[Rfam]
RNA sequence: CGCGUUGGCUGAAUCAGAGAUUGGCUGACGCAAUGUUUAACUUACUCUUAAUUAGGAGAGAAUUAUGUCUCUGAAUGCAGAAACUAAAGCAACAAUCGUUGCAGAAUACGCUCAGUCUGAA
Numbered sequence: 001c002g003c004g005u006u007g008g009c010u011g012a013a014u015c016a017g018a019g020a021u022u023g024g025c026u027g028a029c030g031c032a033a034u035g036u037u038u039a040a041c042u043u044a045c046u047c048u049u050a051a052u053u054a055g056g057a058g059a060g061a062a063u064u065a066u067g068u069c070u071c072u073g074a075a076u077g078c079a080g081a082a083a084c085u086a087a088a089g090c091a092a093c094a095a096u097c098g099u100u101g102c103a104g105a106a107u108a109c110g111c112u113c114a115g116u117c118u119g120a121a
Stems, first nucleotide, its partner, number of pairs: 007026006052075002055072004
Source information:
Ribosomal S15 leader: a 121-nucleotide RNA sequence from Vibrio caribbeanicus. The organism belongs to Vibrio caribbeanicus, within Bacteria.